[Rfam]
RNA sequence: GUGAGGCGGGAAAAGGAAGAGAUGAGGGUCAAAGAGCAGCCGGCAUUGGGAACAUUCAGGAAAGCUUAAGCUAUGGUUAACUCCUGGAGAUGGCAUGCUUUAAGCUUUCCUAAUGCCUCCCAUGCCAACUGUUCUUCGGUUCUCCUUCCUUUUCCUUUUGGCU
Numbered sequence: 001g002u003g004a005g006g007c008g009g010g011a012a013a014a015g016g017a018a019g020a021g022a023u024g025a026g027g028g029u030c031a032a033a034g035a036g037c038a039g040c041c042g043g044c045a046u047u048g049g050g051a052a053c054a055u056u057c058a059g060g061a062a063a064g065c066u067u068a069a070g071c072u073a074u075g076g077u078u079a080a081c082u083c084c085u086g087g088a089g090a091u092g093g094c095a096u097g098c099u100u101u102a103a104g105c106u107u108u109c110c111u112a113a114u115g116c117c118u119c120c121c122a123u124g125c126c127a128a129c130u131g132u133u134c135u136u137c138g139g140u141u142c143u144c145c146u147u148c149c150u151u152u153u154c155c156u157u158u159u160g161g162c163u
Stems, first nucleotide, its partner, number of pairs: 009154005015148003024144003029139002032136007042126005048121004053115003059110007
MIR2118 microRNA precursor family: a 163-nucleotide sequence from Miscanthus lutarioriparius. The literature on the family includes a 2009 paper in Genome Res by Johnson et al., "Clusters and superclusters of phased small RNAs in the developing inflorescence of rice". Pairs were carried over by alignment from the consensus structure, which was predicted with RNAalifold. Gene Ontology terms of the family: RISC complex and miRNA-mediated post-transcriptional gene silencing.